[Rfam]
The family of this 497-nucleotide part of an RNA from Brettanomyces bruxellensis is "Eukaryotic large subunit ribosomal RNA".
The family is grouped with related families in Rfam's "LSU clan".
The organism belongs to Brettanomyces, within Eukaryota.

RNA sequence: CCUGCCGAAGUUUCCCUCAGGAUAGCAGAAGCUCGUAGCAGUUUUAUGAGGUAAAGCGAAUGAUUAAAGGAUCUGGGGCCGAAAAGGCUGCAGCCUAUUCUCAAACUUUAAAUAUGUAAGAAGUCCUUGUUGCUUAGUUGAACGUGGACAGUUGAAUGCAGAGCUUUUAGUGGGCCAUUUUUGGUAAGCAGAACUGGCGAUGCGGGAUGAACCGAACGUGAAGUUAAGGUGCCGGAAUGCGCGCUCAUCAGACACCAGAAAAGGUGUUGGUCCAUCUAGACAGCCGGACGGUGGCCAUGGAAGUCGGAAACCGCUAAGGACUGUGUAACAACUCACCGGCCGAAUGAACCAGCCCUGAAAAUGGAUGGCGCUCAAGCGCGUUACCUAUACUUCGCCGUCACGGAUGGAAUAUAAAUUCUGUGACGAGUAGGCAGGCGUGGGGGUCAGUGACGAAGCCUCUUGGCGUGAGCCUGGGUGGAACGGCCUCUAGUGCAGAU
Numbered sequence: 001c002c003u004g005c006c007g008a009a010g011u012u013u014c015c016c017u018c019a020g021g022a023u024a025g026c027a028g029a030a031g032c033u034c035g036u037a038g039c040a041g042u043u044u045u046a047u048g049a050g051g052u053a054a055a056g057c058g059a060a061u062g063a064u065u066a067a068a069g070g071a072u073c074u075g076g077g078g079c080c081g082a083a084a085a086g087g088c089u090g091c092a093g094c095c096u097a098u099u100c101u102c103a104a105a106c107u108u109u110a111a112a113u114a115u116g117u118a119a120g121a122a123g124u125c126c127u128u129g130u131u132g133c134u135u136a137g138u139u140g141a142a143c144g145u146g147g148a149c150a151g152u153u154g155a156a157u158g159c160a161g162a163g164c165u166u167u168u169a170g171u172g173g174g175c176c177a178u179u180u181u182u183g184g185u186a187a188g189c190a191g192a193a194c195u196g197g198c199g200a201u202g203c204g205g206g207a208u209g210a211a212c213c214g215a216a217c218g219u220g221a222a223g224u225u226a227a228g229g230u231g232c233c234g235g236a237a238u239g240c241g242c243g244c245u246c247a248u249c250a251g252a253c254a255c256c257a258g259a260a261a262a263g264g265u266g267u268u269g270g271u272c273c274a275u276c277u278a279g280a281c282a283g284c285c286g287g288a289c290g291g292u293g294g295c296c297a298u299g300g301a302a303g304u305c306g307g308a309a310a311c312c313g314c315u316a317a318g319g320a321c322u323g324u325g326u327a328a329c330a331a332c333u334c335a336c337c338g339g340c341c342g343a344a345u346g347a348a349c350c351a352g353c354c355c356u357g358a359a360a361a362u363g364g365a366u367g368g369c370g371c372u373c374a375a376g377c378g379c380g381u382u383a384c385c386u387a388u389a390c391u392u393c394g395c396c397g398u399c400a401c402g403g404a405u406g407g408a409a410u411a412u413a414a415a416u417u418c419u420g421u422g423a424c425g426a427g428u429a430g431g432c433a434g435g436c437g438u439g440g441g442g443g444u445c446a447g448u449g450a451c452g453a454a455g456c457c458u459c460u461u462g463g464c465g466u467g468a469g470c471c472u473g474g475g476u477g478g479a480a481c482g483g484c485c486u487c488u489a490g491u492g493c494a495g496a497u
Stems, first nucleotide, its partner, number of pairs: 001435006011024001013022003027168007042121007054109001055107002061103003066098001068096003073093003077089002080086001123149004128144004174198004179193005203214003218395005224389001228385003237382001239381001242378003262356003266353006273346003283340005289313003295307002314318001319334001323332002396425009436492001438489008447481002455476002462471003